[Rfam]
RNA: Small nucleolar RNA SNORA1
Organism: Odocoileus virginianus
RNA sequence: AGCCUCACUCUACUGAAAAUGGGCACUGUUGUUCAUAGUGUCCAUAAACUGUUAAUGUGGCUAUAUUGAGAAUACAGGUUCUGCUUCUAUUACUGUAAUUUUAUUGCAGUGGUGACAAUGAAACCUGCCUGUU
Numbered sequence: 001a002g003c004c005u006c007a008c009u010c011u012a013c014u015g016a017a018a019a020u021g022g023g024c025a026c027u028g029u030u031g032u033u034c035a036u037a038g039u040g041u042c043c044a045u046a047a048a049c050u051g052u053u054a055a056u057g058u059g060g061c062u063a064u065a066u067u068g069a070g071a072a073u074a075c076a077g078g079u080u081c082u083g084c085u086u087c088u089a090u091u092a093c094u095g096u097a098a099u100u101u102u103a104u105u106g107c108a109g110u111g112g113u114g115a116c117a118a119u120g121a122a123a124c125c126u127g128c129c130u131g132u133u
Stems, first nucleotide, its partner, number of pairs: 002061003006057002020044007075127004088114006
Dot-bracket structure: .(((.((............(((((((...........)))))))...........)).))).............((((.........((((((...............)))))).........))))......